[Rfam]
RNA sequence: GGCAGUUCUCGGGUGACACACCCAGGAAUCAGACUCCCUCCUCUCUGGUUCUGGAUGCAUCACGUGAGAACUGCA
Number, nucleotide and partner (000 for none) at each position: 001g000002g074003c073004a000005g071006u070007u069008c068009u067010c066011g065012g000013g063014u062015g061016a060017c000018a000019c057020a056021c000022c054023c053024a000025g052026g051027a050028a049029u048030c047031a046032g045033a044034c000035u000036c000037c000038c000039u000040c000041c000042u000043c000044u033045c032046u031047g030048g029049u028050u027051c026052u025053g023054g022055a000056u020057g019058c000059a000060u016061c015062a014063c013064g000065u011066g010067a009068g008069a007070a006071c005072u000073g003074c002075a000
RNA: mir-9223 microRNA precursor family